RNA sequence: GCCAAUGAUAUUCCGUCCUGAAUUUAUGAGGUGUGGAAUGCUCCAGGGCCCUUGUUUUUCAGGGAGAACUUCCUUGAGCUACAAAUUCAUAUGACAUUAAAGGACAUUUUUGAGGC
Numbered sequence: 001g002c003c004a005a006u007g008a009u010a011u012u013c014c015g016u017c018c019u020g021a022a023u024u025u026a027u028g029a030g031g032u033g034u035g036g037a038a039u040g041c042u043c044c045a046g047g048g049c050c051c052u053u054g055u056u057u058u059u060c061a062g063g064g065a066g067a068a069c070u071u072c073c074u075u076g077a078g079c080u081a082c083a084a085a086u087u088c089a090u091a092u093g094a095c096a097u098u099a100a101a102g103g104a105c106a107u108u109u110u111u112g113a114g115g116c
Base pairs, nucleotide, nucleotide: 001116002115003114050064051063052062053061054060
RNA: Small nucleolar RNA Z278